[Rfam]
Overview:
Shown here is a 191-nucleotide RNA from Thermoactinomyces daqus, a member of the family "Lysine riboswitch aptamer". Taxonomically the source falls in Thermoactinomyces (Bacteria, Bacillati, Bacilli, Caryophanales).
RNA sequence: CGGUGAGGUAGAGGUCGCGGCUUUUAAGAGUAAUUUGUGCGAGGUUCGGAGAUUGACUGAUGACUGCAAAUGAAAGGAAAAGCCGCCGAAAUCCGGUUGCCGGCUCCGGGCGUCCGGGUUGGGGCUGUGUCCGAACAGGUGCAGCACUGUCACGUUUUCUUUCCCGGGAAACGUGGUGCGCUAUCUUGCGG
Number, nucleotide and partner (000 for none) at each position: 001c000002g000003g000004u000005g000006a186007g185008g184009u183010a182011g181012a000013g000014g000015u000016c000017g086018c085019g084020g083021c082022u081023u080024u079025u078026a000027a000028g000029a000030g000031u000032a000033a071034u070035u069036u068037g067038u066039g065040c000041g000042a000043g000044g000045u000046u000047c000048g000049g000050a000051g000052a000053u000054u000055g000056a000057c000058u000059g000060a000061u000062g000063a000064c000065u039066g038067c037068a036069a035070a034071u033072g000073a000074a000075a000076g000077g000078a025079a024080a023081a022082g021083c020084c019085g018086c017087c000088g000089a000090a120091a119092u118093c117094c116095g115096g114097u000098u112099g111100c110101c109102g000103g000104c000105u000106c000107c000108g000109g101110g100111c099112g098113u000114c096115c095116g094117g093118g092119u091120u090121g148122g147123g000124g145125c144126u143127g142128u141129g140130u139131c138132c000133g000134a000135a000136c000137a000138g131139g130140u129141g128142c127143a126144g125145c124146a000147c122148u121149g000150u176151c175152a174153c173154g172155u171156u170157u169158u168159c000160u000161u000162u000163c000164c000165c000166g000167g000168g158169a157170a156171a155172c154173g153174u152175g151176g150177u000178g000179c000180g000181c011182u010183a009184u008185c007186u006187u000188g000189c000190g000191g000